Shown here is a 129-nucleotide sequence from Motilimonas pumila, a member of the family "Histidine operon leader". A search with the family's covariance model found it, with a score of 66 bits. NCBI's taxonomy places the organism under Bacteria, Pseudomonadota, Gammaproteobacteria, Alteromonadales, Motilimonas. Rfam describes the family as follows. At least 6 amino acid operons are known to be regulated by attenuation. In each a leader sequence of 150-200 bp is found upstream of the first gene in the operon. This leader sequence can assume two different secondary structures known as the terminator and the anti-terminator structure. In each case the leader also codes for very short peptide sequence that is rich in the end product amino acid of the operon.

Nucleotides: 129
Stems, first nucleotide, its partner, number of pairs: 008043003012037003017033003021029001044073007093123011
Number, partner (000 for none) and nucleotide at each position: 001000u002000c003000a004000u005000c006000a007000c008043c009042a010041u011000c012037a013036u014035c015000a016000u017033c018032c019031g020000a021029a022000a023000u024000a025000g026000u027000c028000a029021u030000c031019c032018g033017g034000a035014g036013g037012u038000a039000u040000g041010g042009u043008g044073c045072u046071g047070g048069a049068a050067g051000a052000c053000u054000a055000a056000u057000a058000g059000a060000u061000g062000a063000g064000g065000u066000a067050c068049u069048u070047c071046c072045a073044g074000c075000a076000g077000c078000g079000g080000u081000u082000u083000a084000u085000c086000a087000g088000a089000u090000u091000u092000c093123a094122a095121a096120c097119c098118c099117u100116c101115g102114g103113a104000a105000g106000g107000u108000c109000a110000a111000a112000c113103u114102c115101c116100g117099a118098g119097g120096g121095u122094u123093u124000u125000u126000u127000c128000g129000u